[Rfam]
RNA: nadA riboswitch
Organism: Tunturiibacter empetritectus
RNA sequence: GCUUUCAACAUCCCCGUCUCAGAGGCGAAAAGACGGUAUCGGCUUAGCCGCUGCCAUAUGACCUUUUGAGACUGAAGGC
Numbered sequence: 001g002c003u004u005u006c007a008a009c010a011u012c013c014c015c016g017u018c019u020c021a022g023a024g025g026c027g028a029a030a031a032g033a034c035g036g037u038a039u040c041g042g043c044u045u046a047g048c049c050g051c052u053g054c055c056a057u058a059u060g061a062c063c064u065u066u067u068g069a070g071a072c073u074g075a076a077g078g079c
Base pairs, nucleotide, nucleotide: 001079002078003077004076005075006074007073016072017071018070019069020068021067022066023064026060027059029057